[Rfam]
RNA sequence: AACUACACUAUCGAUGAAUAGAUUCACCCGUGAGAUGACGUGGUUGUUCCAUCUAGAAUGAGAACGUGGCAUCUCAUUAAUUUCGCGCGAUGGCUGGUAAUAGAAUGCCAUGUCCUCGUCCUAGGUGAAACAGCCACAUCAUCUCGCACGUGAAUCCAUUUAUCGAUAGUGUAGUU
Numbered sequence: 001a002a003c004u005a006c007a008c009u010a011u012c013g014a015u016g017a018a019u020a021g022a023u024u025c026a027c028c029c030g031u032g033a034g035a036u037g038a039c040g041u042g043g044u045u046g047u048u049c050c051a052u053c054u055a056g057a058a059u060g061a062g063a064a065c066g067u068g069g070c071a072u073c074u075c076a077u078u079a080a081u082u083u084c085g086c087g088c089g090a091u092g093g094c095u096g097g098u099a100a101u102a103g104a105a106u107g108c109c110a111u112g113u114c115c116u117c118g119u120c121c122u123a124g125g126u127g128a129a130a131c132a133g134c135c136a137c138a139u140c141a142u143c144u145c146g147c148a149c150g151u152g153a154a155u156c157c158a159u160u161u162a163u164c165g166a167u168a169g170u171g172u173a174g175u176u
Stems, first nucleotide, its partner, number of pairs: 001176007009168007017160003021156007030147004035142004041136008051126002054123002058119001064113002069108004074103001076101004086097001